[Rfam]
RNA: traJ-II RNA
RNA sequence: GGGCAAGACAGGUGAAGUAGGCCCACCAGCAAGCUGGUGAUCCUUCUUCACGUCUUGCCUAUUCGCCUACCGGCUCAAGGUGAGUUUCCGAAUCGGAA
Numbered sequence: 001g002g003g004c005a006a007g008a009c010a011g012g013u014g015a016a017g018u019a020g021g022c023c024c025a026c027c028a029g030c031a032a033g034c035u036g037g038u039g040a041u042c043c044u045u046c047u048u049c050a051c052g053u054c055u056u057g058c059c060u061a062u063u064c065g066c067c068u069a070c071c072g073g074c075u076c077a078a079g080g081u082g083a084g085u086u087u088c089c090g091a092a093u094c095g096g097a098a
Stems, first nucleotide, its partner, number of pairs: 002089002006087004012051006019044003024039006055083004065074003